[Rfam]
RNA sequence: ACCUCCUCGCGUUCACUGCCGGAGCCGUUAUGUAUAUUUAAAAUUCAUAAGGCACGCGGUGAAUGCCAAGAGCG
Numbered sequence: 001a002c003c004u005c006c007u008c009g010c011g012u013u014c015a016c017u018g019c020c021g022g023a024g025c026c027g028u029u030a031u032g033u034a035u036a037u038u039u040a041a042a043a044u045u046c047a048u049a050a051g052g053c054a055c056g057c058g059g060u061g062a063a064u065g066c067c068a069a070g071a072g073c074g
Stems, first nucleotide, its partner, number of pairs: 003072003009066008018057002025052002029049004
A member of the RNA family "mir-124 microRNA precursor family" from Bombyx mori, 74 nucleotides long. The source organism's lineage runs through Eukaryota, Eumetazoa, Insecta, Endopterygota and Bombyx. The literature on the family includes a 2003 paper in Genome Biol by Lai et al., "Computational identification of Drosophila microRNA genes".